[Rfam]
RNA sequence: CGAAAUGUCUUCUAGGGUUCCGGGUCGAUGAAAGUCAUCGGCUGGCUGGUCCGAGAGAAGGCGCACCGGGGCAGCCUGGUGUACACGGCGGGAAAAAAGCCCGGGAGAA
Numbered sequence: 001c002g003a004a005a006u007g008u009c010u011u012c013u014a015g016g017g018u019u020c021c022g023g024g025u026c027g028a029u030g031a032a033a034g035u036c037a038u039c040g041g042c043u044g045g046c047u048g049g050u051c052c053g054a055g056a057g058a059a060g061g062c063g064c065a066c067c068g069g070g071g072c073a074g075c076c077u078g079g080u081g082u083a084c085a086c087g088g089c090g091g092g093a094a095a096a097a098a099g100c101c102c103g104g105g106a107g108a109a
Stems, first nucleotide, its partner, number of pairs: 007062006015052002020049002022046001023043008063082008084104001086107001090102003

Guanidine-I riboswitch aptamer: a 109-nucleotide RNA sequence from Paenibacillus rhizosphaerae.